[Rfam]
RNA sequence: AUGUGACCUGUGGGUUUCCCUUUGUCAUCCUAUGCCUGGGGCUGUUGAGAGGCAGGGACAGCAAAGGGAGGCUCAGCCGUCACCACU
Numbered sequence: 001a002u003g004u005g006a007c008c009u010g011u012g013g014g015u016u017u018c019c020c021u022u023u024g025u026c027a028u029c030c031u032a033u034g035c036c037u038g039g040g041g042c043u044g045u046u047g048a049g050a051g052g053c054a055g056g057g058a059c060a061g062c063a064a065a066g067g068g069a070g071g072c073u074c075a076g077c078c079g080u081c082a083c084c085a086c087u
Base pairs, nucleotide, nucleotide: 017069018068019067020066021065022064024062025061028058029057030056031055034053035052036051037050

This 87-nucleotide RNA sequence from Neogobius melanostomus belongs to the Rfam family "mir-204 microRNA precursor family". The family's consensus secondary structure was predicted with RNAalifold. On this family, see Gu et al., FEBS Lett 2007: "Identification and characterization of microRNAs from the bovine adipose tissue and mammary gland". The family has 60 seed sequences and 1,730 matches in Rfam 15.1. Its family is annotated with RISC complex and miRNA-mediated post-transcriptional gene silencing in the Gene Ontology. NCBI's taxonomy places the organism under Eukaryota, Opisthokonta, Bilateria, Acanthomorphata, Neogobius.